[Rfam]
Nucleotides: 072
Stems, first nucleotide, its partner, number of pairs: 003069005013062005023057002027053001029051001031050004036045002
Number, partner (000 for none) and nucleotide at each position: 001000u002000g003069g004068g005067c006066a007065u008000g009000u010000g011000a012000u013062g014061u015060g016059a017058c018000c019000u020000u021000c022000c023057u024056g025000a026000g027053c028000c029051u030000g031050c032049a033048u034047u035000c036045c037044c038000u039000c040000a041000c042000c043000u044037g045036g046000a047034a048033g049032u050031g051029a052000u053027g054000a055000g056024c057023a058017g059016u060015u061014a062013c063000u064000g065007a066006u067005g068004c069003c070000a071000c072000a
Annotation
The family of this 72-nucleotide RNA sequence is "Small nucleolar RNA ZL116". Rfam classes the family as a C/D-box small nucleolar RNA. Rfam's curators put it in the seed alignment. A reference for the family is Kishore et al. (2013), "Insights into snoRNA biogenesis and processing from PAR-CLIP of snoRNA core proteins and small RNA sequencing", Genome Biol.